[Rfam]
RNA sequence: CGAAAAACCGGCGCGAGAAACGCCGGCGAUGACAACCAAACACCAUGAAUCGCCGGGCAGGAGCGGCGCAGGCGACGCAUGUUGCGUCAAAACAGACCUGAGGCGAAGGUAAAAAGUUUCAAAACCUGCAAGAGAUGCCAAGCGAUUCUAUCAGGGUUUAAUUAUCCGUCAAUGCUAAAGACUUGUGUUUCAAUUACUUACAGUUA
Numbered sequence: 001c002g003a004a005a006a007a008c009c010g011g012c013g014c015g016a017g018a019a020a021c022g023c024c025g026g027c028g029a030u031g032a033c034a035a036c037c038a039a040a041c042a043c044c045a046u047g048a049a050u051c052g053c054c055g056g057g058c059a060g061g062a063g064c065g066g067c068g069c070a071g072g073c074g075a076c077g078c079a080u081g082u083u084g085c086g087u088c089a090a091a092a093c094a095g096a097c098c099u100g101a102g103g104c105g106a107a108g109g110u111a112a113a114a115a116g117u118u119u120c121a122a123a124a125c126c127u128g129c130a131a132g133a134g135a136u137g138c139c140a141a142g143c144g145a146u147u148c149u150a151u152c153a154g155g156g157u158u159u160a161a162u163u164a165u166c167c168g169u170c171a172a173u174g175c176u177a178a179a180g181a182c183u184u185g186u187g188u189u190u191c192a193a194u195u196a197c198u199u200a201c202a203g204u205u206a
Stems, first nucleotide, its partner, number of pairs: 008026006043109002046106001051068005074088005136174002141169001144166001150162001

Description: Shown here is a 206-nucleotide RNA from Caballeronia novacaledonica, a member of the family "Burkholderia sRNA Bp1_Cand738_SIPHT". For this family Rfam cites "Computational discovery and RT-PCR validation of novel Burkholderia conserved and Burkholderia pseudomallei unique sRNAs" (Khoo et al., BMC Genomics, 2012). It scores 127 bits against the family's covariance model. It is annotated as a small RNA.